About this RNA: Makes More Granules Regulator RNA (mmgR): a 75-nucleotide RNA sequence from Methylobacterium oryzihabitans. The family's RNA type in Rfam is small RNA.
[Rfam]
RNA sequence: CCGUGUCGCCCUCCUUGGGCGUUUCCUCCCUAGACUUCGGGCCGCCUGCAAGGGCGGCCUUUUUCUUUGGUGUGC
Numbered sequence: 001c002c003g004u005g006u007c008g009c010c011c012u013c014c015u016u017g018g019g020c021g022u023u024u025c026c027u028c029c030c031u032a033g034a035c036u037u038c039g040g041g042c043c044g045c046c047u048g049c050a051a052g053g054g055c056g057g058c059c060u061u062u063u064u065c066u067u068u069g070g071u072g073u074g075c
Stems, first nucleotide, its partner, number of pairs: 008020004039060009
The pairing is the family consensus, mapped onto this sequence.
The organism belongs to Methylobacterium, within Bacteria.